[Rfam]
RNA: Small nucleolar RNA Z278
RNA sequence: GCCAGUGAUGAAAUCGCCCGAUUGGUUUGAGGCUGCUGUCGUCUCCAAGUUCCUGCUUGUCAGGAAGAACCUACUUGGAGCCGCUGCACUCGCUUGAUAACUCUGGGCAAAUCUGAGGU
Dot-bracket structure: (((...............................................(((((.....)))))...................................................)))